Description:
A member of the RNA family "Group II catalytic intron D1-D4-7" from Candidatus Kuenenia stuttgartensis, 142 nucleotides long. The family has 244 seed sequences and 1,296 matches in Rfam 15.1. The literature on the family includes a 2001 paper in Trends Genet by Bonen and Vogel, "The ins and outs of group II introns". Rfam's curators write: Group II introns are found in rRNA, tRNA and mRNA of organelles in fungi, plants and protists, and also in mRNA in bacteria. Pairs were carried over by alignment from the consensus structure.
RNA sequence: CCGGAUGUAUUUCCAUCUGUACCCUAGGGAGGCAUGCUACCAUUGCGCUGAUGAUGGGGUGUGAAGCCCUCCCGACAAUGUACCGAAACGGGUAGAAACCGUGAGGUGAAAACCCAUCCGGAAAUUCCGUCCGGUUAAGGGC
Numbered sequence: 001c002c003g004g005a006u007g008u009a010u011u012u013c014c015a016u017c018u019g020u021a022c023c024c025u026a027g028g029g030a031g032g033c034a035u036g037c038u039a040c041c042a043u044u045g046c047g048c049u050g051a052u053g054a055u056g057g058g059g060u061g062u063g064a065a066g067c068c069c070u071c072c073c074g075a076c077a078a079u080g081u082a083c084c085g086a087a088a089c090g091g092g093u094a095g096a097a098a099c100c101g102u103g104a105g106g107u108g109a110a111a112a113c114c115c116a117u118c119c120g121g122a123a124a125u126u127c128c129g130u131c132c133g134g135u136u137a138a139g140g141g142c
Stems, first nucleotide, its partner, number of pairs: 002019006028072005033063006040057006090115004099106002118134005